This 263-nucleotide RNA sequence from Subdoligranulum sp. CAG:314 belongs to the Rfam family "Bacterial large signal recognition particle RNA". Rfam classes the family as a non-coding RNA gene. The base pairs follow the family's consensus structure, which is taken from published work. Lineage of the source: Bacteria > Bacillati > Eubacteriales > Oscillospiraceae > Subdoligranulum. A reference for the family is Regalia et al. (2002), "Prediction of signal recognition particle RNA genes", Nucleic Acids Res.
[Rfam]
RNA sequence: AUGUGAUAGGCGGGGAGCUAGCGGUGCCCUGUUACACGCAAUCCGCUACAGCGUGGCCGAAUGCCAAGGAAGGCAAGCAUUGUGGGAGGCAGGAACAGGUAAGGAGCGUUGAUAACAGGGUCUCGUGCAACGGCGAGCCGUGAACCAUGUCAGGGCGGAAGCAGCAGCAUUAAGCGGAUUUCACUGUGUGCCACGAGGGUGCUUUGGAGGAGCCGCCUGCCCGGAUACCGCUCCGGCUUUGCUUGUCGACCUUGGAUUCACAU
Numbered sequence: 001a002u003g004u005g006a007u008a009g010g011c012g013g014g015g016a017g018c019u020a021g022c023g024g025u026g027c028c029c030u031g032u033u034a035c036a037c038g039c040a041a042u043c044c045g046c047u048a049c050a051g052c053g054u055g056g057c058c059g060a061a062u063g064c065c066a067a068g069g070a071a072g073g074c075a076a077g078c079a080u081u082g083u084g085g086g087a088g089g090c091a092g093g094a095a096c097a098g099g100u101a102a103g104g105a106g107c108g109u110u111g112a113u114a115a116c117a118g119g120g121u122c123u124c125g126u127g128c129a130a131c132g133g134c135g136a137g138c139c140g141u142g143a144a145c146c147a148u149g150u151c152a153g154g155g156c157g158g159a160a161g162c163a164g165c166a167g168c169a170u171u172a173a174g175c176g177g178a179u180u181u182c183a184c185u186g187u188g189u190g191c192c193a194c195g196a197g198g199g200u201g202c203u204u205u206g207g208a209g210g211a212g213c214c215g216c217c218u219g220c221c222c223g224g225a226u227a228c229c230g231c232u233c234c235g236g237c238u239u240u241g242c243u244u245g246u247c248g249a250c251c252u253u254g255g256a257u258u259c260a261c262a263u
Base pairs, nucleotide, nucleotide: 001263002262003261004260005259006258009058010057011056012030013029014028015027017025018024019023035055036054037053038052039051064255065254066253067252068251069250072247073246074245075244076243079240082237083236085234086233087232088231092229093228096223098221099220100219103217104216106213107212113209116206117205118204119203120202121201122197123196124195125194126193127192128188129187131186132185133184135182136179138177139176140175141174147170148169149168150167155162156161